[Rfam]
Rfam assigns this 183-nucleotide RNA sequence from Spirodela intermedia to the family "mir-166 microRNA precursor family".
Rfam's curators write: This family represents the plant microRNA (miRNA) precursor mir-166.
The source organism's lineage runs through Eukaryota, Streptophyta, Magnoliopsida, Araceae and Spirodela.
RNA sequence: UUUGAGGGGAAUGUUGUCUGGCUCGAGGUCUCUCUCCUUCCUCCAUCCUUCUCCUCCUUAUCCUCCUCCGCCUCCGGCUUCCCUCGGCGGUUCUGUUUCUGGGAAGAAAUUGGGACGAUGAGGAUGGAGAAAAUGGAUCGGAGAGGAGAGAUCAUCCUCGGACCAGGCUUCAUUCCCCCCAAU
Numbered sequence: 001u002u003u004g005a006g007g008g009g010a011a012u013g014u015u016g017u018c019u020g021g022c023u024c025g026a027g028g029u030c031u032c033u034c035u036c037c038u039u040c041c042u043c044c045a046u047c048c049u050u051c052u053c054c055u056c057c058u059u060a061u062c063c064u065c066c067u068c069c070g071c072c073u074c075c076g077g078c079u080u081c082c083c084u085c086g087g088c089g090g091u092u093c094u095g096u097u098u099c100u101g102g103g104a105a106g107a108a109a110u111u112g113g114g115a116c117g118a119u120g121a122g123g124a125u126g127g128a129g130a131a132a133a134u135g136g137a138u139c140g141g142a143g144a145g146g147a148g149a150g151a152u153c154a155u156c157c158u159c160g161g162a163c164c165a166g167g168c169u170u171c172a173u174u175c176c177c178c179c180c181a182a183u
Stems, first nucleotide, its partner, number of pairs: 002182003006178008016168006024160005
The match comes from Rfam's covariance-model search (80 bits).
Its family is annotated with RISC complex and miRNA-mediated post-transcriptional gene silencing in the Gene Ontology.